[Rfam]
Overview:
Rfam assigns this 446-nucleotide sequence from Piprites chloris to the family "Vertebrate telomerase RNA". Rfam describes the family as follows. Telomerase is a ribonucleoprotein reverse transcriptase that synthesises telomeric DNA. Telomerase RNAs differ greatly in sequence and structure between vertebrates, ciliates and yeasts, but they share a 5' pseudoknot structure close to the template sequence. The base pairs follow the family's consensus structure, which is taken from published work. The family is grouped with related families in Rfam's "Telomerase clan". The source organism's lineage runs through Eukaryota, Sauria, Telluraves, Australaves and Piprites. The match comes from Rfam's covariance-model search (153 bits).
RNA sequence: UGCGCCGUGUGGGGAGGCCCCUUGCUCACUAACCCUAAUGGCGUCCGCGCUCCCCGCGUCCGCCCGCUGUUUUAUUCGCUGACUUUCAGCGGGCGAGGGGAGCGCCCCGGGGGGGCGGGGGGAGGAUGAGGAAAGGCCUCCGGCAUUAAAAAACGUCAGCGAGGGGGCUCCUCACCCCGGGCCACUCUGGGGUCCCCGGUCCGCAGCCCGGAGUGCUCCCGCCGCCGCGCCGCGCGGAGGCCGCGGUCGGCCGGCCCAGAGCCAUUGCCGCCGCGAAGAGCUCGUCUCUGUCAGCCUCGGCGGCGGACGGGAGCAGAAAGGCCGUCCACCCCCCAGCCCCGGGCAGUCGGUGGUCCCAGUAGAGCAAACCGGGAGCGGCGCCGCCGGGCUGGGCAGCCGCGGCUCCCUCAGCCGUGGGGUGCGCGGCAGGCGCCGCCCCAACACUC
Numbered sequence: 001u002g003c004g005c006c007g008u009g010u011g012g013g014g015a016g017g018c019c020c021c022u023u024g025c026u027c028a029c030u031a032a033c034c035c036u037a038a039u040g041g042c043g044u045c046c047g048c049g050c051u052c053c054c055c056g057c058g059u060c061c062g063c064c065c066g067c068u069g070u071u072u073u074a075u076u077c078g079c080u081g082a083c084u085u086u087c088a089g090c091g092g093g094c095g096a097g098g099g100g101a102g103c104g105c106c107c108c109g110g111g112g113g114g115g116c117g118g119g120g121g122g123a124g125g126a127u128g129a130g131g132a133a134a135g136g137c138c139u140c141c142g143g144c145a146u147u148a149a150a151a152a153a154c155g156u157c158a159g160c161g162a163g164g165g166g167g168c169u170c171c172u173c174a175c176c177c178c179g180g181g182c183c184a185c186u187c188u189g190g191g192g193u194c195c196c197c198g199g200u201c202c203g204c205a206g207c208c209c210g211g212a213g214u215g216c217u218c219c220c221g222c223c224g225c226c227g228c229g230c231c232g233c234g235c236g237g238a239g240g241c242c243g244c245g246g247u248c249g250g251c252c253g254g255c256c257c258a259g260a261g262c263c264a265u266u267g268c269c270g271c272c273g274c275g276a277a278g279a280g281c282u283c284g285u286c287u288c289u290g291u292c293a294g295c296c297u298c299g300g301c302g303g304c305g306g307a308c309g310g311g312a313g314c315a316g317a318a319a320g321g322c323c324g325u326c327c328a329c330c331c332c333c334c335a336g337c338c339c340c341g342g343g344c345a346g347u348c349g350g351u352g353g354u355c356c357c358a359g360u361a362g363a364g365c366a367a368a369c370c371g372g373g374a375g376c377g378g379c380g381c382c383g384c385c386g387g388g389c390u391g392g393g394c395a396g397c398c399g400c401g402g403c404u405c406c407c408u409c410a411g412c413c414g415u416g417g418g419g420u421g422c423g424c425g426g427c428a429g430g431c432g433c434c435g436c437c438c439c440a441a442c443a444c445u446c
Stems, first nucleotide, its partner, number of pairs: 002182002005179001007177001009175007017168005049103005061095009078160006084153003187359007203325002206322003215314007224304005242275005248270004253263003277289004373438001375436008397426005404419004